[Rfam]
RNA: Guanidine-II riboswitch aptamer (mini-ykkC)
Organism: Pseudomonas benzenivorans
RNA sequence: AACCCCGGACGACCGGGGUGCAGACGACUACCGGCGGGACGGCCCGC
Numbered sequence: 001a002a003c004c005c006c007g008g009a010c011g012a013c014c015g016g017g018g019u020g021c022a023g024a025c026g027a028c029u030a031c032c033g034g035c036g037g038g039a040c041g042g043c044c045c046g047c
Stems, first nucleotide, its partner, number of pairs: 002019007034047005